[Rfam]
RNA sequence: CGAGAUGGCCAGGCGGUCGCGGCAGUGACGGGUGACCUUCACUGGCGAGGAACGUCCGGGCUCCACAGGGCAGGGUGGUCGCUAACGGCGACCCGGGGCGACCCGCGGGACAGUGCCACAGAGAACAGACCGCCGGCUUCGGCCGGUAAGGGUGAAACGGUGGUGUAAGAGACCACCAGCGCCGCCGGUGACGGCGGCGGCUCGGUAAACCCCACCCGGAGCAAGGUCAAGAGGGGCCGCGAGGCCCUGCGCGAAGGUCCGAGGGCGGCCCGCCCGACACGCGCCGCGACGCGGCGCGCACCUUCGCGGGUAGACCGCUCGAGCACGUCGGCAACGGCGCGCCUAGAUGGAUGACCGCUCUCGACAGAACCCGGCGUACCGGCCGUCUCGUCCC
Numbered sequence: 001c002g003a004g005a006u007g008g009c010c011a012g013g014c015g016g017u018c019g020c021g022g023c024a025g026u027g028a029c030g031g032g033u034g035a036c037c038u039u040c041a042c043u044g045g046c047g048a049g050g051a052a053c054g055u056c057c058g059g060g061c062u063c064c065a066c067a068g069g070g071c072a073g074g075g076u077g078g079u080c081g082c083u084a085a086c087g088g089c090g091a092c093c094c095g096g097g098g099c100g101a102c103c104c105g106c107g108g109g110a111c112a113g114u115g116c117c118a119c120a121g122a123g124a125a126c127a128g129a130c131c132g133c134c135g136g137c138u139u140c141g142g143c144c145g146g147u148a149a150g151g152g153u154g155a156a157a158c159g160g161u162g163g164u165g166u167a168a169g170a171g172a173c174c175a176c177c178a179g180c181g182c183c184g185c186c187g188g189u190g191a192c193g194g195c196g197g198c199g200g201c202u203c204g205g206u207a208a209a210c211c212c213c214a215c216c217c218g219g220a221g222c223a224a225g226g227u228c229a230a231g232a233g234g235g236g237c238c239g240c241g242a243g244g245c246c247c248u249g250c251g252c253g254a255a256g257g258u259c260c261g262a263g264g265g266c267g268g269c270c271c272g273c274c275c276g277a278c279a280c281g282c283g284c285c286g287c288g289a290c291g292c293g294g295c296g297c298g299c300a301c302c303u304u305c306g307c308g309g310g311u312a313g314a315c316c317g318c319u320c321g322a323g324c325a326c327g328u329c330g331g332c333a334a335c336g337g338c339g340c341g342c343c344u345a346g347a348u349g350g351a352u353g354a355c356c357g358c359u360c361u362c363g364a365c366a367g368a369a370c371c372c373g374g375c376g377u378a379c380c381g382g383c384c385g386u387c388u389c390g391u392c393c394c
Stems, first nucleotide, its partner, number of pairs: 001390010012359007020047002023044006052377003056374005061221004073217005078092005093107001094105004108212002113210002115206003130151002132147006159177006179201001180199008225316004239307006282296006323342002326339005
RNA: Bacterial RNase P class A
Organism: Glycomyces paridis